A member of the RNA family "TPP riboswitch aptamer (THI element)" from Pontibacillus chungwhensis, 110 nucleotides long. Rfam links the family to the GO term thiamine pyrophosphate binding. It scores 71 bits against the family's covariance model.
RNA sequence: UGAUACUACUAGGGGAGCCUGAAUGGGCUGAGAGGGGAGCAAUGGAGCUUCCUGACUCUUACGAACCUGAUCUGGGUCAUACCAGCGGAGGGAAGUAGUCAGGCGAUACG
Numbered sequence: 001u002g003a004u005a006c007u008a009c010u011a012g013g014g015g016a017g018c019c020u021g022a023a024u025g026g027g028c029u030g031a032g033a034g035g036g037g038a039g040c041a042a043u044g045g046a047g048c049u050u051c052c053u054g055a056c057u058c059u060u061a062c063g064a065a066c067c068u069g070a071u072c073u074g075g076g077u078c079a080u081a082c083c084a085g086c087g088g089a090g091g092g093a094a095g096u097a098g099u100c101a102g103g104c105g106a107u108a109c110g
Base pairs, nucleotide, nucleotide: 006098007097008096009095010094011059012058013057014056016053017028018027019026020025035052036051037050038049039048066091067090068089072085073084074083075082